[Rfam]
The family of this 45-nucleotide RNA sequence from Marinilabilia rubra is "Acido-Lenti-1 RNA".
Pairs were carried over by alignment from the consensus structure, which is taken from published work.
RNA sequence: CCCAUGGCGUUGCCAUGGGCUAUAUUAAACCGGGCCUUCAGCCCG
Numbered sequence: 001c002c003c004a005u006g007g008c009g010u011u012g013c014c015a016u017g018g019g020c021u022a023u024a025u026u027a028a029a030c031c032g033g034g035c036c037u038u039c040a041g042c043c044c045g
Stems, first nucleotide, its partner, number of pairs: 001019008032044004